Rfam assigns this 35-nucleotide sequence from Catagonus wagneri to the family "Iron response element I". A reference for the family is Hentze et al. (1987), "Identification of the iron-responsive element for the translational regulation of human ferritin mRNA", Science. Its family is annotated with response to iron ion in the Gene Ontology.
RNA sequence: CUGUCUUUUGCUUCAGCAGUGUUUGGAUGGAGCAG
Numbered sequence: 001c002u003g004u005c006u007u008u009u010g011c012u013u014c015a016g017c018a019g020u021g022u023u024u025g026g027a028u029g030g031a032g033c034a035g
Stems, first nucleotide, its partner, number of pairs: 001035004006031003010028001012027005017021001